[Rfam]
RNA sequence: AGUGCUUAUAUGUGAACAUAGAGCACCAUAUUGGUGCAAUUUGCGUUAAGGUGCCCUUUUUUCGCUCCGUGAAAGCGAUCACAAAGGAACUCUGCAAUACUUGUUUGC
Numbered sequence: 001a002g003u004g005c006u007u008a009u010a011u012g013u014g015a016a017c018a019u020a021g022a023g024c025a026c027c028a029u030a031u032u033g034g035u036g037c038a039a040u041u042u043g044c045g046u047u048a049a050g051g052u053g054c055c056c057u058u059u060u061u062u063c064g065c066u067c068c069g070u071g072a073a074a075g076c077g078a079u080c081a082c083a084a085a086g087g088a089a090c091u092c093u094g095c096a097a098u099a100c101u102u103g104u105u106u107g108c
Stems, first nucleotide, its partner, number of pairs: 002026006009020004027103002031099001035096004044087001046085002050080003057075005063069002
ES222 sRNA: a 108-nucleotide sequence from Enterobacteriaceae bacterium strain FGI 57. From the family's description: Differentially expressed under several chemical stress and fermentation conditions. NCBI's taxonomy places the organism under Bacteria, Pseudomonadota, Gammaproteobacteria, Enterobacterales, Enterobacteriaceae. The family's RNA type in Rfam is small RNA.